Rfam assigns this 74-nucleotide sequence from Neolewinella marina to the family "tRNA".
Taxonomically the source falls in Neolewinella (Bacteria, Bacteroidota, Saprospirales, Lewinellaceae).
Transfer RNA (tRNA) molecules are approximately 80 nucleotides in length. Their secondary structure includes four short double-helical elements and three loops (D, anti-codon, and T loops). Further hydrogen bonds mediate the characteristic L-shaped molecular structure. tRNAs have two regions of fundamental functional importance: the anti-codon, which is responsible for specific mRNA codon recognition, and the 3' end, to which the tRNAs corresponding amino acid is attached (by aminoacyl-tRNA synthetases). tRNAs cope with the degeneracy of the genetic code in two manners: having more than one tRNA (with a specific anti-codon) for a particular amino acid; and 'wobble' base-pairing, i.e. permitting non-standard base-pairing at the 3rd anti-codon position.
Rfam links the family to the GO term triplet codon-amino acid adaptor activity.
[Rfam]
RNA sequence: GUGGUUGUAGCUCAGUUGGUUAGAGCGCUGGAUUGUGAUUCCAGAGGUCGCCGGUUCGAACCCGGUCUUCCACC
Numbered sequence: 001g002u003g004g005u006u007g008u009a010g011c012u013c014a015g016u017u018g019g020u021u022a023g024a025g026c027g028c029u030g031g032a033u034u035g036u037g038a039u040u041c042c043a044g045a046g047g048u049c050g051c052c053g054g055u056u057c058g059a060a061c062c063c064g065g066u067c068u069u070c071c072a073c074c
Base pairs, nucleotide, nucleotide: 001073002072003071004070007067010026011025012024013023028044029043030042031041032040050066051065052064053063054062